[Rfam]
RNA: Group II catalytic intron D1-D4-3
Organism: Lachnospiraceae bacterium 3-1
RNA sequence: UCCAUCGUGAGGUGGAAUCUGAAGGAAGCUGUAGGCAAACCCUUGGUCCGACGGACAGAAAUCACAUAUAAGGCUCGGAAAUACGGAUAAGUCUGCCAAAAGAGAUGAAGUCCAAAAGUUGCCGGAAGUACGAGUAGAUGUGGCGGAUAGGUGAGGGGAAAGAGUGCGCA
Numbered sequence: 001u002c003c004a005u006c007g008u009g010a011g012g013u014g015g016a017a018u019c020u021g022a023a024g025g026a027a028g029c030u031g032u033a034g035g036c037a038a039a040c041c042c043u044u045g046g047u048c049c050g051a052c053g054g055a056c057a058g059a060a061a062u063c064a065c066a067u068a069u070a071a072g073g074c075u076c077g078g079a080a081a082u083a084c085g086g087a088u089a090a091g092u093c094u095g096c097c098a099a100a101a102g103a104g105a106u107g108a109a110g111u112c113c114a115a116a117a118g119u120u121g122c123c124g125g126a127a128g129u130a131c132g133a134g135u136a137g138a139u140g141u142g143g144c145g146g147a148u149a150g151g152u153g154a155g156g157g158g159a160a161a162g163a164g165u166g167c168g169c170a
Base pairs, nucleotide, nucleotide: 001016002015003014004013005012006011030168031167032166036162040157041156042155043154044153045152046148047147048146049145050144062143063142064141065140066139067138073135074134075133077131082130083129084128085113086112087111088110091106092105093104094103